[Rfam]
RNA sequence: ACCUUAUGAAGAACGAAGGGAAGGAACGGGCCUGAUGAACUUCUCGCAACCGGCAUUCGCACGGUGCGCCAUCCCGCAAGCAUCGCUUGAUAGAUAAGGG
Dot-bracket structure: .((((((.....(.((((...(((..[[[[)))......)))))((((.(((.(....))..))))))...(]]]](((((...)))))..).)))))).
Numbered sequence: 001a002c003c004u005u006a007u008g009a010a011g012a013a014c015g016a017a018g019g020g021a022a023g024g025a026a027c028g029g030g031c032c033u034g035a036u037g038a039a040c041u042u043c044u045c046g047c048a049a050c051c052g053g054c055a056u057u058c059g060c061a062c063g064g065u066g067c068g069c070c071a072u073c074c075c076g077c078a079a080g081c082a083u084c085g086c087u088u089g090a091u092a093g094a095u096a097a098g099g100g
Stems, first nucleotide, its partner, number of pairs: 002099006013044001015043004022033003027076004045068004050064002052060001054059001072092001077089005
The record is a 100-nucleotide RNA from Savagea serpentis, which matches "SAM riboswitch aptamer (S box leader)" in Rfam.
NCBI's taxonomy places the organism under Bacteria, Bacillati, Bacillota, Caryophanaceae, Savagea.
The match comes from Rfam's covariance-model search (56 bits).
About the family: The SAM riboswitch is found upstream of a number of genes which code for proteins involved in methionine or cysteine biosynthesis in Gram-positive bacteria.